The record is a 91-nucleotide RNA from Anoxybacteroides amylolyticum, which matches "pan motif" in Rfam.
[Rfam]
RNA sequence: CGGGCAGUAUCUUUUCGCAAGAACUGCACCAUCAUAAACAAAAAAUGAUGAACAAAUUCUGCCUUGAUCCAGAAAGGACUAGGACAGAGGG
Numbered sequence: 001c002g003g004g005c006a007g008u009a010u011c012u013u014u015u016c017g018c019a020a021g022a023a024c025u026g027c028a029c030c031a032u033c034a035u036a037a038a039c040a041a042a043a044a045a046u047g048a049u050g051a052a053c054a055a056a057u058u059c060u061g062c063c064u065u066g067a068u069c070c071a072g073a074a075a076g077g078a079c080u081a082g083g084a085c086a087g088a089g090g091g
Stems, first nucleotide, its partner, number of pairs: 002030002004027005010022002059087003062083003066079001068078003